[Rfam]
RNA sequence: AGUAGUAGCAGCAAAGUAAGGUGAGAAUCCUUACCGCCGGAGGGGCUAGGGUUCCUUGGCAAUGUUCGUCAGCCAAGGGUUAGUCGAUCCUAAGGCCGGUCGUAAGUCGAGCCGGUCGAAAGGGAAACAGGUUAAUAUUCCUGUACAUAGUUGAUACGUGCGGUGACGCGUGGACUAGUUUCUGACGCUUUGAGAUAGGUUUUGUAUGAUUGUCGUCAUAUUUAAGUGUUUAAGCCAGGGGAGAGGUGUAAUGGCGAGAACCUGGUGUAGGCAUUAACAGCAACCUGUAUGGGUUGUUUAACUGAUUCAUGGAGUCCUUGAAAAGGGAAUUAGUAUGGAUUCAACUAUUUCGUACCGAGAUCCGUCACAGGUGCCCCUAGUUGAGUAGACUAAGGCGUUU
Numbered sequence: 001a002g003u004a005g006u007a008g009c010a011g012c013a014a015a016g017u018a019a020g021g022u023g024a025g026a027a028u029c030c031u032u033a034c035c036g037c038c039g040g041a042g043g044g045g046c047u048a049g050g051g052u053u054c055c056u057u058g059g060c061a062a063u064g065u066u067c068g069u070c071a072g073c074c075a076a077g078g079g080u081u082a083g084u085c086g087a088u089c090c091u092a093a094g095g096c097c098g099g100u101c102g103u104a105a106g107u108c109g110a111g112c113c114g115g116u117c118g119a120a121a122g123g124g125a126a127a128c129a130g131g132u133u134a135a136u137a138u139u140c141c142u143g144u145a146c147a148u149a150g151u152u153g154a155u156a157c158g159u160g161c162g163g164u165g166a167c168g169c170g171u172g173g174a175c176u177a178g179u180u181u182c183u184g185a186c187g188c189u190u191u192g193a194g195a196u197a198g199g200u201u202u203u204g205u206a207u208g209a210u211u212g213u214c215g216u217c218a219u220a221u222u223u224a225a226g227u228g229u230u231u232a233a234g235c236c237a238g239g240g241g242a243g244a245g246g247u248g249u250a251a252u253g254g255c256g257a258g259a260a261c262c263u264g265g266u267g268u269a270g271g272c273a274u275u276a277a278c279a280g281c282a283a284c285c286u287g288u289a290u291g292g293g294u295u296g297u298u299u300a301a302c303u304g305a306u307u308c309a310u311g312g313a314g315u316c317c318u319u320g321a322a323a324a325g326g327g328a329a330u331u332a333g334u335a336u337g338g339a340u341u342c343a344a345c346u347a348u349u350u351c352g353u354a355c356c357g358a359g360a361u362c363c364g365u366c367a368c369a370g371g372u373g374c375c376c377c378u379a380g381u382u383g384a385g386u387a388g389a390c391u392a393a394g395g396c397g398u399u400u
Stems, first nucleotide, its partner, number of pairs: 016034006035397004043376004049356002054078006063071002085352003089123002094117006100110003127144005147348008181327003187315006194308002198303004204221005226274004235265005245255001247253001286291001362371002378392004

Archaeal large subunit ribosomal RNA: a 400-nucleotide part of an RNA from Methanobrevibacter ruminantium. A reference for the family is Yusupov et al. (2001), "Crystal structure of the ribosome at 5.5 A resolution", Science.